RNA sequence: AUCACAGUGUGUCGCCGAGCCUGCCCGCCUACCGGAAUGUUCCCACGGCGCCAGGCCGCCGGGUUCGACUGGAAACGGCCGGGCCUCCCUGGGGGAAAGGGACCCUGUGGUCAACCU
Numbered sequence: 001a002u003c004a005c006a007g008u009g010u011g012u013c014g015c016c017g018a019g020c021c022u023g024c025c026c027g028c029c030u031a032c033c034g035g036a037a038u039g040u041u042c043c044c045a046c047g048g049c050g051c052c053a054g055g056c057c058g059c060c061g062g063g064u065u066c067g068a069c070u071g072g073a074a075a076c077g078g079c080c081g082g083g084c085c086u087c088c089c090u091g092g093g094g095g096a097a098a099g100g101g102a103c104c105c106u107g108u109g110g111u112c113a114a115c116c117u
Base pairs, nucleotide, nucleotide: 006108011103012102013101015100016099019056020055021054022053023052025050027049028048029047034043035042036041061086062085063084064083065082066081067080069078070077071076087095088094

Rfam assigns this 117-nucleotide RNA sequence from Geothermobacter hydrogeniphilus to the family "Molybdenum/Tungsten riboswitch aptamer (Moco RNA motif)". A reference for the family is Regulski et al. (2008), "in molybdenum cofactor and tungsten cofactor metabolism", Mol Microbiol. Taxonomically the source falls in Geothermobacter (Bacteria, Pseudomonadati, Thermodesulfobacteriota, Geothermobacteraceae). Gene Ontology terms of the family: regulation of gene expression, tungstate binding and molybdenum ion binding.